[Rfam]
Shown here is a 50-nucleotide RNA from Proteus myxofaciens, a member of the family "L31-Gammaproteobacteria ribosomal protein leader". For this family Rfam cites "Discovery of 20 novel ribosomal leader candidates in bacteria and archaea" (Eckert and Weinberg, BMC Microbiol, 2020). NCBI's taxonomy places the organism under Bacteria, Enterobacterales, Morganellaceae, Proteus, Proteus myxofaciens. The family's RNA type in Rfam is cis-regulatory leader. Clan: Ribosomal Protein L31 Leader clan.
RNA sequence: CGUGUGGUGUUCGGCUAAGGGCUGAAUGGCGACACGGCCUUAGUAGAGGU
Numbered sequence: 001c002g003u004g005u006g007g008u009g010u011u012c013g014g015c016u017a018a019g020g021g022c023u024g025a026a027u028g029g030c031g032a033c034a035c036g037g038c039c040u041u042a043g044u045a046g047a048g049g050u
Stems, first nucleotide, its partner, number of pairs: 001036005007030002011025005